[Rfam]
RNA sequence: AUGCCUUAAACUUAUGAGUAAGGAAAAUAACGAUUCAGGGUGAUGCCCUAAUCCUCACUGCUAAUGUGAGAUGAAUUUUUGAGCAGGUAAAGGUUGCCCCUAAGGUGACCCGCCUACUUUGUGGGAUGCCUGGGUACUGGGAUCUGCCCA
Numbered sequence: 001a002u003g004c005c006u007u008a009a010a011c012u013u014a015u016g017a018g019u020a021a022g023g024a025a026a027a028u029a030a031c032g033a034u035u036c037a038g039g040g041u042g043a044u045g046c047c048c049u050a051a052u053c054c055u056c057a058c059u060g061c062u063a064a065u066g067u068g069a070g071a072u073g074a075a076u077u078u079u080u081g082a083g084c085a086g087g088u089a090a091a092g093g094u095u096g097c098c099c100c101u102a103a104g105g106u107g108a109c110c111c112g113c114c115u116a117c118u119u120u121g122u123g124g125g126a127u128g129c130c131u132g133g134g135u136a137c138u139g140g141g142a143u144c145u146g147c148c149c150a
Stems, first nucleotide, its partner, number of pairs: 004023005032053004038047002054070005086148003091145005097139001100134002103131005109125005
The family of this 150-nucleotide RNA from Neogale vison is "U12 minor spliceosomal RNA". Rfam classes the family as a spliceosomal small nuclear RNA. The match comes from Rfam's covariance-model search (132 bits). The family is grouped with related families in Rfam's "U2 clan". Taxonomically the source falls in Neogale (Eukaryota, Eumetazoa, Bilateria, Theria).